Shown here is a 143-nucleotide RNA sequence from Domibacillus epiphyticus, a member of the family "c-di-AMP riboswitch aptamer (ydaO/yuaA leader)". Taxonomically the source falls in Domibacillus (Bacteria, Bacillota, Bacilli, Bacillaceae). This family represents a conserved RNA structure found upstream of the ydaO and yuaA genes in Bacillus subtilis and related genes in other bacteria.
Nucleotides: 143
Base pairs, nucleotide, nucleotide: 011128012127013126014125018031019030020029032123033122034121035120036119037118042052043051053108054107055106061076062075063074064073079103080102081101082100
Number, partner (000 for none) and nucleotide at each position: 001000u002000a003000c004000a005000u006000a007000u008000c009000u010000c011128g012127g013126c014125c015000u016000a017000g018031u019030c020029c021000c022000g023000u024000c025000a026000u027000c028000g029020g030019g031018a032123a033122c034121g035120g036119a037118g038000g039000a040000c041000c042052c043051a044000a045000u046000u047000u048000u049000u050000u051043u052042g053108g054107g055106g056000c057000u058000a059000a060000u061076u062075c063074u064073a065000c066000a067000g068000u069000u070000u071000u072000g073064u074063a075062g076061a077000a078000g079103g080102g081101a082100u083000g084000a085000g086000a087000g088000c089000a090000c091000u092000c093000u094000u095000u096000c097000g098000c099000c100082a101081u102080c103079c104000u105000g106055c107054c108053c109000g110000u111000c112000a113000g114000c115000u116000a117000a118037c119036u120035u121034c122033g123032u124000c125014g126013g127012c128011u129000a130000a131000a132000g133000c134000g135000a136000a137000g138000g139000a140000g141000g142000u143000c